Shown here is a 78-nucleotide RNA sequence from Nothoprocta ornata, a member of the family "mir-460 microRNA precursor family". Rfam 15.1 lists 1,029 matches to the family in 498 species. A reference for the family is Xu et al. (2006), "Identification of microRNAs from different tissues of chicken embryo and adult chicken", FEBS Lett. The organism belongs to Nothoprocta, within Eukaryota.
RNA sequence: CUCGCUGCUGUCCUCAUUGUACAUGCUGUGUGUAUUUUCGGUGGCAUACACAGCGCAUGCAAUGUGGACGGGAUGGGG
Number, nucleotide and partner (000 for none) at each position: 001c000002u000003c000004g000005c000006u000007g000008c000009u000010g000011u000012c067013c066014u000015c064016a063017u062018u061019g060020u059021a058022c000023a000024u055025g000026c053027u052028g051029u050030g049031u048032g000033u000034a000035u000036u000037u000038u000039c000040g000041g000042u000043g000044g000045c000046a000047u000048a031049c030050a029051c028052a027053g026054c000055g024056c000057a000058u021059g020060c019061a018062a017063u016064g015065u000066g013067g012068a000069c000070g000071g000072g000073a000074u000075g000076g000077g000078g000